Shown here is a 112-nucleotide RNA sequence from Trema orientale, a member of the family "mir-395 microRNA precursor family".
Taxonomically the source falls in Trema (Eukaryota, Viridiplantae, Streptophytina, Spermatophyta).
For this family Rfam cites "Computational Identification of Plant MicroRNAs and Their Targets, Including a Stress-Induced miRNA" (Jones-Rhoades and Bartel, Mol Cell, 2004).
mir-395 was identified in both Arabidopsis thaliana and Oryza sativa computationally and was later experimentally verified. mir-395 is thought to target mRNAs coding for ATP sulphurylases. The mature sequence is excised from the 3' arm of the hairpin.
The match comes from Rfam's covariance-model search (61 bits).
RNA sequence: AUGUCUCCUGGAGUUUCCCCAAACACUUCAUUAGGGACUUUCCCAGCCCUUGAGUAGAAGAGGGAAUUUUAUCACUUCCUAUUGAAGUGUUUGGGGGAACCCCGGGUGUUAU
Numbered sequence: 001a002u003g004u005c006u007c008c009u010g011g012a013g014u015u016u017c018c019c020c021a022a023a024c025a026c027u028u029c030a031u032u033a034g035g036g037a038c039u040u041u042c043c044c045a046g047c048c049c050u051u052g053a054g055u056a057g058a059a060g061a062g063g064g065a066a067u068u069u070u071a072u073c074a075c076u077u078c079c080u081a082u083u084g085a086a087g088u089g090u091u092u093g094g095g096g097g098a099a100c101c102c103c104g105g106g107u108g109u110u111a112u
Base pairs, nucleotide, nucleotide: 005108007106008105009104011102013100014099015098016097017096018095019094020093021092022091023090024089025088026087027086028085029084030083032081033080034079035078036077037076